The family of this 103-nucleotide RNA sequence from Lysinibacillus sp. 2017 is "Glycine riboswitch aptamer". NCBI's taxonomy places the organism under Bacteria, Bacillota, Bacilli, Caryophanales, Lysinibacillus. The match comes from Rfam's covariance-model search (34 bits). Rfam describes the family as follows. This family represents the bacterial glycine riboswitch. Glycine riboswitches usually consist of two metabolite-binding aptamers domains with similar structures in tandem. The aptamers cooperatively bind glycine to regulate the expression of downstream genes. A reference for the family is Babina et al. (2017), "In Vivo Behavior of the Tandem Glycine Riboswitch in Bacillus subtilis", MBio.

RNA sequence: CUCUGGAGAGCGCUGCAAACUUAAAUUGUAGCCACCAAAGGGGAAAGCCUAAAUUGUGAUGGAAAUUCAAAUUUAGGUGUAACUUUCAGGUGCAAGGACAGAG
Numbered sequence: 001c002u003c004u005g006g007a008g009a010g011c012g013c014u015g016c017a018a019a020c021u022u023a024a025a026u027u028g029u030a031g032c033c034a035c036c037a038a039a040g041g042g043g044a045a046a047g048c049c050u051a052a053a054u055u056g057u058g059a060u061g062g063a064a065a066u067u068c069a070a071a072u073u074u075a076g077g078u079g080u081a082a083c084u085u086u087c088a089g090g091u092g093c094a095a096g097g098a099c100a101g102a103g
Stems, first nucleotide, its partner, number of pairs: 001103005012032007034091003038086001041085003047078009